A member of the RNA family "c-di-AMP riboswitch aptamer (ydaO/yuaA leader)" from Arthrobacter sunyaminii, 151 nucleotides long.
NCBI's taxonomy places the organism under Bacteria, Bacillati, Actinomycetota, Actinomycetes, Arthrobacter.
RNA sequence: GGUCCACAGAUUUCACACUUCGGCAGAGGCGGGGGAACCACUUACGGGUUCCUUGAAUCCUUGGGGUUAAGUCAGCCGAGGUUUCUUCGGCGGACCGGAUGACUCCCAUCCGCAUCCGACAGCUCACCUCGCAGGUAUCGGGAGAGGUAAC
Numbered sequence: 001g002g003u004c005c006a007c008a009g010a011u012u013u014c015a016c017a018c019u020u021c022g023g024c025a026g027a028g029g030c031g032g033g034g035g036a037a038c039c040a041c042u043u044a045c046g047g048g049u050u051c052c053u054u055g056a057a058u059c060c061u062u063g064g065g066g067u068u069a070a071g072u073c074a075g076c077c078g079a080g081g082u083u084u085c086u087u088c089g090g091c092g093g094a095c096c097g098g099a100u101g102a103c104u105c106c107c108a109u110c111c112g113c114a115u116c117c118g119a120c121a122g123c124u125c126a127c128c129u130c131g132c133a134g135g136u137a138u139c140g141g142g143a144g145a146g147g148u149a150a151c
Stems, first nucleotide, its partner, number of pairs: 006136002012028003029132006039063002064117003072094002075091007097111004